[Rfam]
Nucleotides: 038
Base pairs, nucleotide, nucleotide: 003036004035006033007032008031009030010029017022
Number, partner (000 for none) and nucleotide at each position: 001000g002000a003036g004035c005000g006033g007032c008031g009030g010029c011000a012000a013000c014000u015000a016000c017022c018000c019000u020000g021000c022017g023000a024000c025000c026000a027000c028000g029010g030009c031008u032007g033006c034000g035004g036003c037000c038000u

Mycobacterium sRNA Ms_IGR-4: a 38-nucleotide RNA sequence from Mycolicibacterium mageritense. On this family, see Li et al., RNA 2013: "Identification of small RNAs in Mycobacterium smegmatis using heterologous Hfq". Lineage of the source: Bacteria > Bacillati > Actinomycetes > Mycobacterium > Mycolicibacterium mageritense. The family's RNA type in Rfam is small RNA. It is one of the family's seed sequences.